[Rfam]
RNA sequence: GGGAGCAGGCCAAGCUCAACCAACGCAUUCAUUUCCUGCCUUUUACCGGAUGUGACCGUGAGUUGGCCUACAAUGCUCCCAUUCUAAUCUUUGGAAACCUCUGGACACCCAGAUU
Dot-bracket structure: ..((((.((((((.((((..........((((.(((...........))).))))...))))))))))......))))................(....(((((....))))).)
Numbered sequence: 001g002g003g004a005g006c007a008g009g010c011c012a013a014g015c016u017c018a019a020c021c022a023a024c025g026c027a028u029u030c031a032u033u034u035c036c037u038g039c040c041u042u043u044u045a046c047c048g049g050a051u052g053u054g055a056c057c058g059u060g061a062g063u064u065g066g067c068c069u070a071c072a073a074u075g076c077u078c079c080c081a082u083u084c085u086a087a088u089c090u091u092u093g094g095a096a097a098c099c100u101c102u103g104g105a106c107a108c109c110c111a112g113a114u115u
Stems, first nucleotide, its partner, number of pairs: 003078004008068006015062004029055004034050003095115001100113005
Annotation
The record is a 115-nucleotide RNA sequence from Podospora anserina, which matches "U5 spliceosomal RNA" in Rfam. Rfam describes the family as follows. U5 RNA is a component of both types of known spliceosome. The source organism's lineage runs through Eukaryota, Dikarya, saccharomyceta, Sordariomycetidae and Podospora. Rfam classes the family as a spliceosomal small nuclear RNA.